[Rfam]
About this RNA
Shown here is a 125-nucleotide RNA from Serratia symbiotica, a member of the family "TPP riboswitch aptamer (THI element)". The base pairs follow the family's consensus structure, which is taken from published work.
RNA sequence: GGCAUCUUGUCGGAGUGCCUAGCGCCUGAUUUAUUCAACAAAUUGGCCGGGCUGAGACCGUUAAUUCGGGAUCCGCGGAACCUGAUCGGGUUAGUACCCGCGAAGGGAACAAGAGUAAUCUAUAG
Numbered sequence: 001g002g003c004a005u006c007u008u009g010u011c012g013g014a015g016u017g018c019c020u021a022g023c024g025c026c027u028g029a030u031u032u033a034u035u036c037a038a039c040a041a042a043u044u045g046g047c048c049g050g051g052c053u054g055a056g057a058c059c060g061u062u063a064a065u066u067c068g069g070g071a072u073c074c075g076c077g078g079a080a081c082c083u084g085a086u087c088g089g090g091u092u093a094g095u096a097c098c099c100g101c102g103a104a105g106g107g108a109a110c111a112a113g114a115g116u117a118a119u120c121u122a123u124a125g
Stems, first nucleotide, its partner, number of pairs: 006113005011075004016069001017052004059068002081106003087100004

The match comes from Rfam's covariance-model search (66 bits).